[Rfam]
Shown here is a 95-nucleotide RNA sequence from Paenibacillus nuruki, a member of the family "c-di-GMP-I riboswitch aptamer". It scores 75 bits against the family's covariance model. For this family Rfam cites "Identification of 22 candidate structured RNAs in bacteria using the CMfinder comparative genomics pipeline" (Weinberg et al., Nucleic Acids Res, 2007). Lineage of the source: Bacteria > Bacillati > Bacilli > Paenibacillaceae > Paenibacillus.
RNA sequence: UAUUUAAUCAGGCAAAUUUACUGAAAAGUAAAGACGCAAAGCCAAAGGGUCUAACACAUGAAUUGUAGGACAUGUCAUGACAGCCGGUUACCGAG
Numbered sequence: 001u002a003u004u005u006a007a008u009c010a011g012g013c014a015a016a017u018u019u020a021c022u023g024a025a026a027a028g029u030a031a032a033g034a035c036g037c038a039a040a041g042c043c044a045a046a047g048g049g050u051c052u053a054a055c056a057c058a059u060g061a062a063u064u065g066u067a068g069g070a071c072a073u074g075u076c077a078u079g080a081c082a083g084c085c086g087g088u089u090a091c092c093g094a095g
Base pairs, nucleotide, nucleotide: 012037013036017032018031019030020029021028022027040089041088042087043086047085048084049081050080051079056075057074058073059072